Rfam assigns this 123-nucleotide RNA sequence from Asparagus officinalis to the family "MIR397 microRNA precursor family". The match comes from Rfam's covariance-model search (65 bits). The literature on the family includes a 2009 paper in BMC Genomics by Mica et al., "High throughput approaches reveal splicing of primary microRNA transcripts and tissue specific expression of mature microRNAs in Vitis vinifera".
RNA sequence: UGGAUCAGCAUAAUUGAGUGCAGCGUUGAUAAUGUUCUUCAGCUUUUCUCUUGUUGUCAUUUGCAGAAUUGCCGAAGAGUUGGCGAUCCAGUGUUAUCAGCGCUGCAUUCAAUCAUGUCUUUG
Dot-bracket structure: .......((((.((((((((((((((((.(((((((.....................................................))))))).)))))))))))))))).)))).....